This 83-nucleotide sequence from Bos taurus belongs to the Rfam family "small Cajal body-specific RNA 18". The family's consensus secondary structure was predicted with PFOLD. By type it is a small Cajal body RNA. Its family is annotated with Cajal body, nucleolus and RNA processing in the Gene Ontology. It is one of the family's seed sequences.
RNA sequence: UGGUCGAUGAUGACGUGACCACUGCGCAAUCUGAGUUCUGGGAACUAGGUGAUGGAGCGUGUUCUGAGAACGGACUGAGACCG
Numbered sequence: 001u002g003g004u005c006g007a008u009g010a011u012g013a014c015g016u017g018a019c020c021a022c023u024g025c026g027c028a029a030u031c032u033g034a035g036u037u038c039u040g041g042g043a044a045c046u047a048g049g050u051g052a053u054g055g056a057g058c059g060u061g062u063u064c065u066g067a068g069a070a071c072g073g074a075c076u077g078a079g080a081c082c083g
Stems, first nucleotide, its partner, number of pairs: 002082004038048004